This 92-nucleotide RNA sequence from Takifugu flavidus belongs to the Rfam family "Small nucleolar SNORD12/SNORD106".
Clan: SNORD12 clan.
The match comes from Rfam's covariance-model search (53 bits).

RNA sequence: AGUGUGGUUAAUGAUGUCAAACUUUUUUCCCCGGCUUAUCGACAAUGAGGAGUCAAAACCAUUUCAAAGCCAAUUGUGUCUGAAACCACAUU
Numbered sequence: 001a002g003u004g005u006g007g008u009u010a011a012u013g014a015u016g017u018c019a020a021a022c023u024u025u026u027u028u029c030c031c032c033g034g035c036u037u038a039u040c041g042a043c044a045a046u047g048a049g050g051a052g053u054c055a056a057a058a059c060c061a062u063u064u065c066a067a068a069g070c071c072a073a074u075u076g077u078g079u080c081u082g083a084a085a086c087c088a089c090a091u092u
Stems, first nucleotide, its partner, number of pairs: 001092009
Gene Ontology terms of the family: nucleolus and RNA processing.